[Rfam]
RNA sequence: CCUCAGGCUCCCUGGGACAGUAGCAGAGGAACUGCGCUCCGGGGAGAGUGCGCCGAGCUCCCUGAAGGGCUGCGGCCCACACGGCUGGACCCGGGAGCGGCU
Number, nucleotide and partner (000 for none) at each position: 001c000002c000003u000004c000005a000006g000007g098008c097009u096010c095011c094012c093013u000014g091015g090016g000017a000018c087019a086020g000021u083022a000023g000024c000025a000026g000027a000028g078029g077030a000031a000032c075033u074034g073035c072036g070037c069038u068039c067040c000041g063042g062043g061044g060045a059046g058047a000048g000049u055050g054051c000052g000053c000054c050055g049056a000057g000058c046059u045060c044061c043062c042063u041064g000065a000066a000067g039068g038069g037070c036071u000072g035073c034074g033075g032076c000077c029078c028079a000080c000081a000082c000083g021084g000085c000086u019087g018088g000089a000090c015091c014092c000093g012094g011095g010096a009097g008098c007099g000100g000101c000102u000
RNA: mir-8904 microRNA precursor family
Organism: Canis lupus